The record is a 412-nucleotide RNA sequence from an SAR116 cluster bacterium, which matches "Alphaproteobacteria transfer-messenger RNA" in Rfam.

RNA sequence: AAUCUUUCAACCUGUCUCAUUUCAUCCUAUAAUUUAAGUGUCGAUGCAAGUCGACUAUGGCGAUAAACGUAUUAUGGAAUAAGCAGAGCGGACCCGGGGGCGGUACCCGGCGCCUCCACCAUUAAGCUAAAAGAGCACUGAUGAUACUAACGUUAUUGCUCAUCAUAUCAAGGUUUGUUUCGGUAUGACGCAUUUUUUUGGGGGCGAAAUAGGAUCGACGCAUGUAGUAAAGAUGGUAUUUUCGCUCGGUAUGAUAUCCGCCGUUAUCGGGUCAUUGUAGUAGUUGCAAAUGACAACACUGCUCCGGUUGCAAUGGCUGCGUAAUGCAGUUUGAGUGAUCAAAAUUAAGCCCUGUCGGAUUGAGCUCUGGCAGGCGGGGUCGAGGGUGCACCUGGCAACAGAAAGCCCCUCA
Numbered sequence: 001a002a003u004c005u006u007u008c009a010a011c012c013u014g015u016c017u018c019a020u021u022u023c024a025u026c027c028u029a030u031a032a033u034u035u036a037a038g039u040g041u042c043g044a045u046g047c048a049a050g051u052c053g054a055c056u057a058u059g060g061c062g063a064u065a066a067a068c069g070u071a072u073u074a075u076g077g078a079a080u081a082a083g084c085a086g087a088g089c090g091g092a093c094c095c096g097g098g099g100g101c102g103g104u105a106c107c108c109g110g111c112g113c114c115u116c117c118a119c120c121a122u123u124a125a126g127c128u129a130a131a132a133g134a135g136c137a138c139u140g141a142u143g144a145u146a147c148u149a150a151c152g153u154u155a156u157u158g159c160u161c162a163u164c165a166u167a168u169c170a171a172g173g174u175u176u177g178u179u180u181c182g183g184u185a186u187g188a189c190g191c192a193u194u195u196u197u198u199u200g201g202g203g204g205c206g207a208a209a210u211a212g213g214a215u216c217g218a219c220g221c222a223u224g225u226a227g228u229a230a231a232g233a234u235g236g237u238a239u240u241u242u243c244g245c246u247c248g249g250u251a252u253g254a255u256a257u258c259c260g261c262c263g264u265u266a267u268c269g270g271g272u273c274a275u276u277g278u279a280g281u282a283g284u285u286g287c288a289a290a291u292g293a294c295a296a297c298a299c300u301g302c303u304c305c306g307g308u309u310g311c312a313a314u315g316g317c318u319g320c321g322u323a324a325u326g327c328a329g330u331u332u333g334a335g336u337g338a339u340c341a342a343a344a345u346u347a348a349g350c351c352c353u354g355u356c357g358g359a360u361u362g363a364g365c366u367c368u369g370g371c372a373g374g375c376g377g378g379g380u381c382g383a384g385g386g387u388g389c390a391c392c393u394g395g396c397a398a399c400a401g402a403a404a405g406c407c408c409c410u411c412a
Stems, first nucleotide, its partner, number of pairs: 040055005059246005069239007084224002088221003094110005111206007247263004252274003257270002377393004384408004
It is annotated as a non-coding RNA gene.
NCBI's taxonomy places the organism under Bacteria, Pseudomonadati, Pseudomonadota, Alphaproteobacteria, Puniceispirillales (SeqCode).
Bacterial tmRNA, also known as 10Sa RNA or SsrA, is named for its dual tRNA and mRNA-like properties.